This 196-nucleotide RNA from Miscanthus lutarioriparius belongs to the Rfam family "MIR6217 microRNA precursor family". The base pairs follow the family's consensus structure, which was predicted with RNAalifold. Taxonomically the source falls in Miscanthus (Eukaryota, Streptophyta, Embryophyta, Petrosaviidae). The match comes from Rfam's covariance-model search (149 bits).

RNA sequence: UACUCUAUAGCCACUUUGAGUUACGAUAAUUAUUAUGUUAAUUUAUGAGAUUAUAAUAACUUCUUACUAAGUGGUUUACUAUAACGUUAUAGUAAAUAUCCCCAUAUGUUAUAGUAACCCAACUAUCGUAAAUAUGUAUUGACAUUAUUGUAAAUUAAUAUAUAAAAUUAUCGUAAAUGGAGGUGGUUACAGAAUA
Numbered sequence: 001u002a003c004u005c006u007a008u009a010g011c012c013a014c015u016u017u018g019a020g021u022u023a024c025g026a027u028a029a030u031u032a033u034u035a036u037g038u039u040a041a042u043u044u045a046u047g048a049g050a051u052u053a054u055a056a057u058a059a060c061u062u063c064u065u066a067c068u069a070a071g072u073g074g075u076u077u078a079c080u081a082u083a084a085c086g087u088u089a090u091a092g093u094a095a096a097u098a099u100c101c102c103c104a105u106a107u108g109u110u111a112u113a114g115u116a117a118c119c120c121a122a123c124u125a126u127c128g129u130a131a132a133u134a135u136g137u138a139u140u141g142a143c144a145u146u147a148u149u150g151u152a153a154a155u156u157a158a159u160a161u162a163u164a165a166a167a168u169u170a171u172c173g174u175a176a177a178u179g180g181a182g183g184u185g186g187u188u189a190c191a192g193a194a195u196a
Stems, first nucleotide, its partner, number of pairs: 001196002004193003008189010021176011034162013049149003053145002058139001064131004071126006077116011092100001